[Rfam]
RNA sequence: CCUCCCGCUUUUCCUCCCUGAGCGGGGCCUUGAUGUGUGACAGCAAAUAGGCUUACCACCCCAGCCCAUGUGCUGGGGUUUUUUUU
Numbered sequence: 001c002c003u004c005c006c007g008c009u010u011u012u013c014c015u016c017c018c019u020g021a022g023c024g025g026g027g028c029c030u031u032g033a034u035g036u037g038u039g040a041c042a043g044c045a046a047a048u049a050g051g052c053u054u055a056c057c058a059c060c061c062c063a064g065c066c067c068a069u070g071u072g073c074u075g076g077g078g079u080u081u082u083u084u085u086u
Stems, first nucleotide, its partner, number of pairs: 004026006027052004034045003058079008
Notes
The record is an 86-nucleotide RNA from Burkholderiales bacterium PBB3, which matches "Burkholderia RNA 7 (anti-hemB)" in Rfam. Rfam describes the family as follows. This RNA motif was identified by computational search in b-proteobacteria Burkholderia. Co-purified with Hfq, expression confirmed by Northern blot. By type it is a small RNA. On this family, see Weinberg et al., Nucleic Acids Res 2007: "Identification of 22 candidate structured RNAs in bacteria using the CMfinder comparative genomics pipeline". NCBI's taxonomy places the organism under Bacteria, Pseudomonadati, Pseudomonadota, Betaproteobacteria, Burkholderiales. Gene Ontology terms of the family: protein binding and bacterial biofilm matrix.